[Rfam]
RNA sequence: AAAGUAGCCAGGCAGUUUGUUGCGAGCGUUGGAACUUCAGCCAAACGA
Numbered sequence: 001a002a003a004g005u006a007g008c009c010a011g012g013c014a015g016u017u018u019g020u021u022g023c024g025a026g027c028g029u030u031g032g033a034a035c036u037u038c039a040g041c042c043a044a045a046c047g048a
Stems, first nucleotide, its partner, number of pairs: 001037002008032002011030001012027002015046005
A member of the RNA family "Exoribonuclease-resistant RNA (xrRNA) plant-infecting virus (class 3)" from Polerovirus MJVA, 48 nucleotides long. The source organism's lineage runs through Viruses, Pisuviricota, Pisoniviricetes, Polerovirus and Polerovirus MJVA. It is annotated as a cis-regulatory element. About the family: Exoribonuclease-resistant RNA (xrRNA) plant-infecting virus (class 3) is a ncRNA that was reported in Plant viruses.